The family of this 94-nucleotide RNA from a Desulfuromonadales bacterium is "Selenocysteine transfer RNA".
RNA sequence: GGAAGUACAACCGUCGCUGGUGGGCGGCUCAGUCUUCAAAACUGAUGAGGGGGGUGAGAAACUUCCCUGGUGGGUUCGAUUCCCAUGUGCUUCC
Numbered sequence: 001g002g003a004a005g006u007a008c009a010a011c012c013g014u015c016g017c018u019g020g021u022g023g024g025c026g027g028c029u030c031a032g033u034c035u036u037c038a039a040a041a042c043u044g045a046u047g048a049g050g051g052g053g054g055u056g057a058g059a060a061a062c063u064u065c066c067c068u069g070g071u072g073g074g075u076u077c078g079a080u081u082c083c084c085a086u087g088u089g090c091u092u093c094c
Stems, first nucleotide, its partner, number of pairs: 001094009011027005017022001029045005048068005071085004